[Rfam]
RNA sequence: AUUUGGUAACAGCUCUUUUAGAAUUUGUCUAGCAAGUUUUCUAGUCUGUACCCAGAAACCUCA
Number, nucleotide and partner (000 for none) at each position: 001a000002u000003u000004u000005g000006g000007u000008a000009a000010c000011a000012g000013c000014u000015c000016u000017u000018u000019u000020a000021g000022a000023a000024u000025u000026u000027g000028u000029c000030u000031a000032g000033c000034a000035a061036g060037u000038u058039u057040u056041c055042u054043a000044g051045u050046c000047u000048g000049u000050a045051c044052c000053c000054a042055g041056a040057a039058a038059c000060c036061u035062c000063a000

The family of this 63-nucleotide RNA sequence from Cercocebus atys is "U7 small nuclear RNA". For this family Rfam cites "Identification of the human U7 snRNP as one of several factors involved in the 3' end maturation of histone premessenger RNA's" (Mowry and Steitz, Science, 1987). Pairs were carried over by alignment from the consensus structure, which was predicted with PFOLD. The family has 49 seed sequences and 10,439 matches in Rfam 15.1. From the family's description: Animal histone pre-mRNAs are spliced by a different mechanism than nuclear pre-mRNAs and self-splicing introns.